[Rfam]
RNA sequence: UCACAGUACGUUACAUUCUCCUUAAACCGAGACCUAUAGGGAAUUCAAACACGUCUCUCAUACCAACCCUGGAGGGUAGGGUUGGAAUACUAUACUCA
Numbered sequence: 001u002c003a004c005a006g007u008a009c010g011u012u013a014c015a016u017u018c019u020c021c022u023u024a025a026a027c028c029g030a031g032a033c034c035u036a037u038a039g040g041g042a043a044u045u046c047a048a049a050c051a052c053g054u055c056u057c058u059c060a061u062a063c064c065a066a067c068c069c070u071g072g073a074g075g076g077u078a079g080g081g082u083u084g085g086a087a088u089a090c091u092a093u094a095c096u097c098a
Stems, first nucleotide, its partner, number of pairs: 016043005023038002029057005063085007
Rfam assigns this 98-nucleotide sequence to the family "PhotoRC-II RNA". The sequence is in the family's curated seed alignment.